The record is a 70-nucleotide sequence from Scopus umbretta, which matches "Small nucleolar RNA SNORD73" in Rfam. Rfam 15.1 lists 769 matches to the family in 586 species. Lineage of the source: Eukaryota > Saurischia > Coelurosauria > Aequornithes > Scopus. On this family, see Rebane et al., Gene 1998: "A novel snoRNA (U73) is encoded within the introns of the human and mouse ribosomal protein S3a genes". The family's consensus secondary structure was predicted with PFOLD. A search with the family's covariance model found it, with a score of 73 bits.
RNA sequence: AAUGAAUGACGACAAAAUGUUUCGGUCCCAGAUGACAUGCGAUGAUUCUAUUUUCCCAUUUUCUGACAUU
Numbered sequence: 001a002a003u004g005a006a007u008g009a010c011g012a013c014a015a016a017a018u019g020u021u022u023c024g025g026u027c028c029c030a031g032a033u034g035a036c037a038u039g040c041g042a043u044g045a046u047u048c049u050a051u052u053u054u055c056c057c058a059u060u061u062u063c064u065g066a067c068a069u070u
Stems, first nucleotide, its partner, number of pairs: 001070004